[Rfam]
RNA sequence: GAAAGUUUUUUCGAUAUAGAACACUCAUAUCGAUAAAAUUAUUUGAACCCUUU
Numbered sequence: 001g002a003a004a005g006u007u008u009u010u011u012c013g014a015u016a017u018a019g020a021a022c023a024c025u026c027a028u029a030u031c032g033a034u035a036a037a038a039u040u041a042u043u044u045g046a047a048c049c050c051u052u053u
Stems, first nucleotide, its partner, number of pairs: 011033007

A member of the RNA family "Plastid-atpF group II-D1 intron" from Juglans sigillata, 53 nucleotides long. Rfam links the family to the GO term Group II intron splicing. Pairs were carried over by alignment from the consensus structure, which was predicted with LocARNA. Rfam describes the family as follows. Plastid atpF is a non-coding RNA (ncRNA) recognised in plastids. It has been reported in the intron group II-D1 region of ATP synthase (atpF) genes.